Overview
Shown here is a 228-nucleotide sequence from Anatilimnocola aggregata, a member of the family "Group II catalytic intron D1-D4-6". The base pairs follow the family's consensus structure. About the family: Group II introns are found in rRNA, tRNA and mRNA of organelles in fungi, plants and protists, and also in mRNA in bacteria. A search with the family's covariance model found it, with a score of 54 bits. The family has 174 seed sequences and 1,617 matches in Rfam 15.1. Taxonomically the source falls in Anatilimnocola (Bacteria, Planctomycetota, Planctomycetia, Pirellulales).
RNA sequence: GGAGCUUGUCCGGAGAAUUGCUCGUAUUCCGGUAGCUUACCGAGCGGCGGUGGGAGUAACCCAGCUGUCGGAGCCUUGGGAGGCGAAUCCGUCAGCCGUAACGCAAGUGAACCCAGUACGGCCCCGUUAUGAAGUGGGAGCGGCCAACCUGCCAACGAUGGCGAAGCCAGCACUGAUCACGAAGCAACGAGUAAAUGCAGUGAUCAGGCUCCUCGGGGUGUGAGAGGA
Numbered sequence: 001g002g003a004g005c006u007u008g009u010c011c012g013g014a015g016a017a018u019u020g021c022u023c024g025u026a027u028u029c030c031g032g033u034a035g036c037u038u039a040c041c042g043a044g045c046g047g048c049g050g051u052g053g054g055a056g057u058a059a060c061c062c063a064g065c066u067g068u069c070g071g072a073g074c075c076u077u078g079g080g081a082g083g084c085g086a087a088u089c090c091g092u093c094a095g096c097c098g099u100a101a102c103g104c105a106a107g108u109g110a111a112c113c114c115a116g117u118a119c120g121g122c123c124c125c126g127u128u129a130u131g132a133a134g135u136g137g138g139a140g141c142g143g144c145c146a147a148c149c150u151g152c153c154a155a156c157g158a159u160g161g162c163g164a165a166g167c168c169a170g171c172a173c174u175g176a177u178c179a180c181g182a183a184g185c186a187a188c189g190a191g192u193a194a195a196u197g198c199a200g201u202g203a204u205c206a207g208g209c210u211c212c213u214c215g216g217g218g219u220g221u222g223a224g225a226g227g228a
Base pairs, nucleotide, nucleotide: 010031012029013028014027019193020192021191033085036082040079041078042077044074045070046069047068048067049066050065051064053062054061119220121219122218123217124216125215126214136213137212138211139210140209141208142168143167144166148161149160173207174206175205176204177203178202179201180200